[Rfam]
RNA sequence: AAAAUAAAGGAGCAAUAACCAAUUUCUUGUUUCAUCAAAAGUGCAGUAUUGCUCCCUUUC
Numbered sequence: 001a002a003a004a005u006a007a008a009g010g011a012g013c014a015a016u017a018a019c020c021a022a023u024u025u026c027u028u029g030u031u032u033c034a035u036c037a038a039a040a041g042u043g044c045a046g047u048a049u050u051g052c053u054c055c056c057u058u059u060c
Base pairs, nucleotide, nucleotide: 006058007057009055010054011053012052013051014050015049016048017047022042024041025040027038028037029036
RNA: Plastid-psbA-4 3UTR RNA